[Rfam]
RNA sequence: ACGGGCCGGUGCGGACGCCCGUUCAGACGAACCUUCGUCCAAGUCCGC
Dot-bracket structure: ((((((....[[[[[.))))))...(((((....)))))....]]]]]
RNA: chrB-b RNA